[Rfam]
RNA sequence: UGUUGAAUGAUGUGAAAUCAGACGGAUUCCCACUGAUAUUAUUUGUAUAUGAUUACACAACCAGCUACUACUGACAACA
Numbered sequence: 001u002g003u004u005g006a007a008u009g010a011u012g013u014g015a016a017a018u019c020a021g022a023c024g025g026a027u028u029c030c031c032a033c034u035g036a037u038a039u040u041a042u043u044u045g046u047a048u049a050u051g052a053u054u055a056c057a058c059a060a061c062c063a064g065c066u067a068c069u070a071c072u073g074a075c076a077a078c079a
Stems, first nucleotide, its partner, number of pairs: 001079005
Dot-bracket structure: (((((.....................................................................)))))
This 79-nucleotide RNA sequence from Glycine max belongs to the Rfam family "Small nucleolar RNA R12". By type it is a C/D-box small nucleolar RNA. Gene Ontology terms of the family: nucleolus and RNA processing. From the family's description: snoR12 is a C/D box small nucleolar RNA, which acts as a methylation guide for 25S ribosomal RNA in plants. snoR12 has been alternatively named snoZ44 in Arabidopsis and snoZ131 in rice. The family's consensus secondary structure was predicted with PFOLD. Lineage of the source: Eukaryota > Streptophyta > Tracheophyta > Mesangiospermae > Glycine subgen. Soja.